Annotation:
Shown here is a 127-nucleotide sequence from Chara braunii, a member of the family "U11 spliceosomal RNA". It is annotated as a spliceosomal small nuclear RNA. The base pairs follow the family's consensus structure, which is taken from published work. Lineage of the source: Eukaryota > Viridiplantae > Streptophyta > Characeae > Chara. It scores 44 bits against the family's covariance model. Rfam links the family to the GO terms mRNA 5'-splice site recognition, U11 snRNP and pre-mRNA 5'-splice site binding.

RNA sequence: AAAAAUGGCCAAUUGGCUAUAUAUGCCAUGCACGGUUAAGGCCGUCCACUGUAUGAACAUCAAAACAUAUGGCGGGCAAAAAAUAUUAACCCUUCAAUAGGGUUGGCACGCUUUGCGAACCCUUCAU
Numbered sequence: 001a002a003a004a005a006u007g008g009c010c011a012a013u014u015g016g017c018u019a020u021a022u023a024u025g026c027c028a029u030g031c032a033c034g035g036u037u038a039a040g041g042c043c044g045u046c047c048a049c050u051g052u053a054u055g056a057a058c059a060u061c062a063a064a065a066c067a068u069a070u071g072g073c074g075g076g077c078a079a080a081a082a083a084u085a086u087u088a089a090c091c092c093u094u095c096a097a098u099a100g101g102g103u104u105g106g107c108a109c110g111c112u113u114u115g116c117g118a119a120c121c122c123u124u125c126a127u
Stems, first nucleotide, its partner, number of pairs: 008077003014028004029048002032045005049072007096124002100121002103118002106116003